This 103-nucleotide RNA from Niveibacterium umoris belongs to the Rfam family "SAH (S-adenosyl-L-homocysteine) riboswitch aptamer".
It scores 41 bits against the family's covariance model.
The source organism's lineage runs through Bacteria, Pseudomonadati, Betaproteobacteria, Rhodocyclales and Niveibacterium.

Nucleotides: 103
Base pairs, nucleotide, nucleotide: 004052005051006050007049008048021041022040024038025037026036027035028034
Number, partner (000 for none) and nucleotide at each position: 001000a002000a003000c004052u005051c006050c007049g008048a009000g010000g011000a012000g013000c014000g015000c016000u017000g018000c019000g020000a021041g022040a023000g024038g025037c026036g027035g028034g029000c030000a031000u032000g033000g034028c035027c036026c037025g038024c039000a040022u041021c042000c043000c044000a045000g046000g047000c048008u049007c050006g051005g052004a053000c054000c055000c056000c057000g058000c059000c060000g061000g062000u063000c064000g065000g066000c067000g068000c069000a070000a071000u072000g073000c074000c075000g076000c077000g078000g079000c080000a081000g082000g083000c084000a085000a086000g087000a088000a089000c090000c091000g092000c093000g094000c095000u096000c097000a098000c099000c100000c101000u102000g103000u